[Rfam]
RNA sequence: UCUGAUCGAUGAUGACGAAAAUAAUAAUAGCAGACUGUUGGAUGAAGCUUUCGGAUAUGGGACUGAGAUCAGCU
Numbered sequence: 001u002c003u004g005a006u007c008g009a010u011g012a013u014g015a016c017g018a019a020a021a022u023a024a025u026a027a028u029a030g031c032a033g034a035c036u037g038u039u040g041g042a043u044g045a046a047g048c049u050u051u052c053g054g055a056u057a058u059g060g061g062a063c064u065g066a067g068a069u070c071a072g073c074u
Base pairs, nucleotide, nucleotide: 002072003071004070005069
RNA: Small nucleolar RNA SNORD99